This 167-nucleotide part of an RNA from Fusarium austroafricanum belongs to the Rfam family "Ascomycota telomerase RNA".
For this family Rfam cites "The common ancestral core of vertebrate and fungal telomerase RNAs" (Qi et al., Nucleic Acids Res, 2013).
The source organism's lineage runs through Eukaryota, Pezizomycotina, sordariomyceta, Nectriaceae and Fusarium concolor species complex.
Rfam classes the family as a non-coding RNA gene.
It scores 390 bits against the family's covariance model.
Clan: Telomerase clan.
Rfam 15.1 lists 475 matches to the family in 456 species.
Gene Ontology terms of the family: telomere maintenance via telomerase, telomerase catalytic core complex and telomerase activity.
RNA sequence: CACACCUGCGAAGAUCGAACGGUCUCAACAGGUCCCUCAGAUCCGCCGAAAGGUUGAAUUUGAGACGAAAGGGUGGUUUUUAUGGAUGUCUUUUGUCCGCCCGUUAAUGCCUUCCAUGCCUCUCGCGGGCGAGAACUUUGGAGAGGAAUCAAAAACUAGUCCUAGUU
Numbered sequence: 001c002a003c004a005c006c007u008g009c010g011a012a013g014a015u016c017g018a019a020c021g022g023u024c025u026c027a028a029c030a031g032g033u034c035c036c037u038c039a040g041a042u043c044c045g046c047c048g049a050a051a052g053g054u055u056g057a058a059u060u061u062g063a064g065a066c067g068a069a070a071g072g073g074u075g076g077u078u079u080u081u082a083u084g085g086a087u088g089u090c091u092u093u094u095g096u097c098c099g100c101c102c103g104u105u106a107a108u109g110c111c112u113u114c115c116a117u118g119c120c121u122c123u124c125g126c127g128g129g130c131g132a133g134a135a136c137u138u139u140g141g142a143g144a145g146g147a148a149u150c151a152a153a154a155a156c157u158a159g160u161c162c163u164a165g166u167u
Stems, first nucleotide, its partner, number of pairs: 007030002013025001014023003035067001036064006042057002047052001085161003088156002091154005110146002112143004121134005
Dot-bracket structure: ......((....((((....))).)...))....(((((((((...(....)...)).))))))..).................(((((.(((((..............((((((.....(((((....))))).....)))).))...)))))))..)))......